About this RNA
A member of the RNA family "Small Cajal body specific RNA 6" from Grallaria varia, 271 nucleotides long. Rfam describes the family as follows. U88 is small Cajal body specific RNA (scaRNA). scaRNAs are a novel class of small nuclear RNAs which localise to the Cajal bodies. U88 is found associated with both fibrillarin and Gar1p and co-localises with coilin in Cajal bodies. A search with the family's covariance model found it, with a score of 97 bits. Rfam classes the family as a small Cajal body RNA. On this family, see Darzacq et al., EMBO J 2002: "Cajal body-specific small nuclear RNAs: a novel class of 2'-O-methylation and pseudouridylation guide RNAs". Pairs were carried over by alignment from the consensus structure, which is taken from published work. NCBI's taxonomy places the organism under Eukaryota, Euteleostomi, Saurischia, Theropoda, Grallaria.
[Rfam]
RNA sequence: GGUCGAUGAUGACGAAGAAGUUUUCUGAGGGCACAAAGGAAUUACACCCCCUGACCCUCUUGGCUCCCAGCAGUCCCUGUUCUAUCAUGCCAUAGUAGAGCUGUGAUAGAGGAAGAGAUUGCUGACAGUUUGGGAUUAAUUCAAUUCCAGUUCUCCACAGUAAAGGGAGUUGUGGCACCAAAUGUAAUCCGACAGACCUGCUUAAGAGGAGCUCAUGGUGGUGGGGUGUCUUCAUUUGCUGUGCGUGAUCAAAGGUUUUCAAGCUGAGACC
Dot-bracket structure: ((((..................................((.(.....((((............(((((((((((......((((((((((.........).))))))))).......))))))).......(.(((((........(((...((((.........))))...))).........)))))).................))))...........))))....................).)).................))))
Numbered sequence: 001g002g003u004c005g006a007u008g009a010u011g012a013c014g015a016a017g018a019a020g021u022u023u024u025c026u027g028a029g030g031g032c033a034c035a036a037a038g039g040a041a042u043u044a045c046a047c048c049c050c051c052u053g054a055c056c057c058u059c060u061u062g063g064c065u066c067c068c069a070g071c072a073g074u075c076c077c078u079g080u081u082c083u084a085u086c087a088u089g090c091c092a093u094a095g096u097a098g099a100g101c102u103g104u105g106a107u108a109g110a111g112g113a114a115g116a117g118a119u120u121g122c123u124g125a126c127a128g129u130u131u132g133g134g135a136u137u138a139a140u141u142c143a144a145u146u147c148c149a150g151u152u153c154u155c156c157a158c159a160g161u162a163a164a165g166g167g168a169g170u171u172g173u174g175g176c177a178c179c180a181a182a183u184g185u186a187a188u189c190c191g192a193c194a195g196a197c198c199u200g201c202u203u204a205a206g207a208g209g210a211g212c213u214c215a216u217g218g219u220g221g222u223g224g225g226g227u228g229u230c231u232u233c234a235u236u237u238g239c240u241g242u243g244c245g246u247g248a249u250c251a252a253a254g255g256u257u258u259u260c261a262a263g264c265u266g267a268g269a270c271c
Stems, first nucleotide, its partner, number of pairs: 001271004039250002042247001048226004064211004068124007081110009090100001132190001134189005147175003153169004